RNA sequence: AUACUCAGGUGAUCGCUGUAUUUAUAAUACAGAGGAAAGUCCAUGCUCACACAAACUGUGAUGUUUGUAGUGUUCGUGCUUGACGAAAUCAUAAGUCAAGGUAACCUUAAAGGUUAACGGCAGGAGACAUCCUAAGUCACAUGUAGUGAUACGGAUUUAUCCUUGAAAGUGCCACAGUGACGUAGCCGGUUUGGAAACAUUCCGGGUGGAACGAGGUAAACCCCGCGAGUGAGCAACCCAAAUAAUGGUAGGGGCAUCUUCCAGUAGGGAAACGAACCGAAAGAAGGACAAGUAUACACUUGUAGAUAGAUGAUCACAUCCAUAUGUACGAGAUUGACCAUCGAUUGCAGUACAUUGGUACAGAACAUGGCUUAUCGAG
Dot-bracket structure: ...((((.((((((.((((((.....))))))....[[[.[[[[[(((((((((((......)))))).....(((((((((((..........))))))(((((((...)))))).)((.((((...((((...(((((.....)))))..))))...)))).....(((((............((((..((....))..)))).........)))..))))))))))))))...(((...........)))...(((((.....................)))))((((((....))))))........))))))...(..((((((....................))))))..).......]]]]]]]].).)))